RNA sequence: CAAAUGAAAAAAAACCUCUCAGGGCCUUGAAUAAGACCCAGUGAACUAUUUUUGGAGACCCUAUUCGAAAGGAUAGGAUG
Numbered sequence: 001c002a003a004a005u006g007a008a009a010a011a012a013a014a015c016c017u018c019u020c021a022g023g024g025c026c027u028u029g030a031a032u033a034a035g036a037c038c039c040a041g042u043g044a045a046c047u048a049u050u051u052u053u054g055g056a057g058a059c060c061c062u063a064u065u066c067g068a069a070a071g072g073a074u075a076g077g078a079u080g
Stems, first nucleotide, its partner, number of pairs: 022039003026035003058079001060077007

SmY spliceosomal RNA: an 80-nucleotide RNA sequence from Caenorhabditis brenneri. Rfam 15.1 lists 408 matches to the family in 67 species. On this family, see Maroney et al., RNA 1996: "Direct analysis of nematode cis- and trans-spliceosomes: a functional role for U5 snRNA in spliced leader addition trans-splicing and the identification of novel Sm snRNPs". It is annotated as a spliceosomal small nuclear RNA. Pairs were carried over by alignment from the consensus structure, which is taken from published work.